[Rfam]
RNA sequence: UAGUAUGUUUCCAGGGACUUACGCUGAGUUAUGGUCAUGGAAUCCCCAACCAUAUCACAGAGCGAGACGGAGACACUCUGACAGCUUGGCUCAGGUCAGCACAGUACCUGUGGCUGUUAUUAUCUUUCUGAGAAGG
Numbered sequence: 001u002a003g004u005a006u007g008u009u010u011c012c013a014g015g016g017a018c019u020u021a022c023g024c025u026g027a028g029u030u031a032u033g034g035u036c037a038u039g040g041a042a043u044c045c046c047c048a049a050c051c052a053u054a055u056c057a058c059a060g061a062g063c064g065a066g067a068c069g070g071a072g073a074c075a076c077u078c079u080g081a082c083a084g085c086u087u088g089g090c091u092c093a094g095g096u097c098a099g100c101a102c103a104g105u106a107c108c109u110g111u112g113g114c115u116g117u118u119a120u121u122a123u124c125u126u127u128c129u130g131a132g133a134a135g136g
Stems, first nucleotide, its partner, number of pairs: 011040002016036004020031002069129005084117002092110004
Shown here is a 136-nucleotide RNA sequence from Mus musculus, a member of the family "Small nucleolar RNA SNORA44". The match comes from Rfam's covariance-model search (65 bits). For this family Rfam cites "RNomics: an experimental approach that identifies 201 candidates for novel, small, non-messenger RNAs in mouse" (Huttenhofer et al., EMBO J, 2001). Rfam's curators write: ACA44 is a member of the H/ACA class of snoRNA that guide the sites of modification of uridines to pseudouridines. The family is grouped with related families in Rfam's "SNORA44 clan". Rfam classes the family as an H/ACA-box small nucleolar RNA. Rfam links the family to the GO terms RNA processing and nucleolus.